[Rfam]
RNA sequence: AGCUUCGGUGGUGUCGGCGCCCUUUCCUAAGGACCACGGGAGAGAAAGAACCCAACCAAGCCCCACCCCUCCCUCCCGCACGCGGCGCAAACUCACCCCCGCGAGUGAACAUCGCCAACUCAGCUGGAUUCGGGACCGGUUGUCUGGCCUACGCUCAGCGCGGCACACCACAACCACGGACAUCCGCAGCGAGCAUCAACAGCACGCAUCCGCAGCGGACAUCCGAACCAACAACCGCAGACAUGCGACGGCCCCCGCCGGGACUGCAAUCCCAAUGGCGAGGGCCUGACCACCGAGGAAGAUUGGGCUUCCCG
Numbered sequence: 001a002g003c004u005u006c007g008g009u010g011g012u013g014u015c016g017g018c019g020c021c022c023u024u025u026c027c028u029a030a031g032g033a034c035c036a037c038g039g040g041a042g043a044g045a046a047a048g049a050a051c052c053c054a055a056c057c058a059a060g061c062c063c064c065a066c067c068c069c070u071c072c073c074u075c076c077c078g079c080a081c082g083c084g085g086c087g088c089a090a091a092c093u094c095a096c097c098c099c100c101g102c103g104a105g106u107g108a109a110c111a112u113c114g115c116c117a118a119c120u121c122a123g124c125u126g127g128a129u130u131c132g133g134g135a136c137c138g139g140u141u142g143u144c145u146g147g148c149c150u151a152c153g154c155u156c157a158g159c160g161c162g163g164c165a166c167a168c169c170a171c172a173a174c175c176a177c178g179g180a181c182a183u184c185c186g187c188a189g190c191g192a193g194c195a196u197c198a199a200c201a202g203c204a205c206g207c208a209u210c211c212g213c214a215g216c217g218g219a220c221a222u223c224c225g226a227a228c229c230a231a232c233a234a235c236c237g238c239a240g241a242c243a244u245g246c247g248a249c250g251g252c253c254c255c256c257g258c259c260g261g262g263a264c265u266g267c268a269a270u271c272c273c274a275a276u277g278g279c280g281a282g283g284g285c286c287u288g289a290c291c292a293c294c295g296a297g298g299a300a301g302a303u304u305g306g307g308c309u310u311c312c313c314g
Base pairs, nucleotide, nucleotide: 007294008293009292010291017079018078019077093108094107095106096105098103123216124215125214126213250286251285252284253283254282256280257279258278260273261272262271263270297312298311299310300309301308
Description: The record is a 314-nucleotide sequence from Streptomyces sp. MA5143a, which matches "Streptomyces sRNA 4677" in Rfam. Rfam's curators write: Located in the intergenic region between anti-sigma factor SCO4677 gene and a putative regulatory protein gene SCO4676. scr4677 expression requires the SCO4677 activity and scr4677 sRNA itself seem to affect the levels of the SCO4676-associated transcripts. It scores 169 bits against the family's covariance model. The literature on the family includes a 2014 paper in PLoS One by Hindra et al., "Complex intra-operonic dynamics mediated by a small RNA in Streptomyces coelicolor". Rfam 15.1 lists 563 matches to the family in 285 species. The organism belongs to Streptomyces, within Bacteria. The family's RNA type in Rfam is small RNA.